[Rfam]
RNA sequence: CUACAAACCCGAGCUAUCGCUCUCAUGCAAAUGGGGGAGGAAAGUCCGGACAGCAUAGGGAAACCCACCGGUUAAUGGCCGGCAUUGCUAGCAAUAGUAAUAGAGAUAGUGCCACAGAAAAUAACUACCUCGCAAGGGGAAAAGGUGAAAAAGUGCGGUAAAAGCGCACGGCUUAGCAGGGUAACUUGUUAGGGGGGUAAACCUUGGGUGUUGUAAUGCCAUGUAUAGGAGCGUUUGAAGGCGGCCCGCUUGAGCUCCAGGGUAGGCAGCUAGAUCUUGCAAGUAAUUGCAAGGCCAGAUAAAUGAUAGUUUAGAAACAGAAUCCGGCUUAUGAGGUUUGUAGUAUU
Numbered sequence: 001c002u003a004c005a006a007a008c009c010c011g012a013g014c015u016a017u018c019g020c021u022c023u024c025a026u027g028c029a030a031a032u033g034g035g036g037g038a039g040g041a042a043a044g045u046c047c048g049g050a051c052a053g054c055a056u057a058g059g060g061a062a063a064c065c066c067a068c069c070g071g072u073u074a075a076u077g078g079c080c081g082g083c084a085u086u087g088c089u090a091g092c093a094a095u096a097g098u099a100a101u102a103g104a105g106a107u108a109g110u111g112c113c114a115c116a117g118a119a120a121a122u123a124a125c126u127a128c129c130u131c132g133c134a135a136g137g138g139g140a141a142a143a144g145g146u147g148a149a150a151a152a153g154u155g156c157g158g159u160a161a162a163a164g165c166g167c168a169c170g171g172c173u174u175a176g177c178a179g180g181g182u183a184a185c186u187u188g189u190u191a192g193g194g195g196g197g198u199a200a201a202c203c204u205u206g207g208g209u210g211u212u213g214u215a216a217u218g219c220c221a222u223g224u225a226u227a228g229g230a231g232c233g234u235u236u237g238a239a240g241g242c243g244g245c246c247c248g249c250u251u252g253a254g255c256u257c258c259a260g261g262g263u264a265g266g267c268a269g270c271u272a273g274a275u276c277u278u279g280c281a282a283g284u285a286a287u288u289g290c291a292a293g294g295c296c297a298g299a300u301a302a303a304u305g306a307u308a309g310u311u312u313a314g315a316a317a318c319a320g321a322a323u324c325c326g327g328c329u330u331a332u333g334a335g336g337u338u339u340g341u342a343g344u345a346u347u
Stems, first nucleotide, its partner, number of pairs: 001343009011332001012311007020037007042330003046327005051213004058247003063209005068082005083103001084101007104204002109202002111198003125144002128139004153169005172194001173192008217268004228258005239251004275294008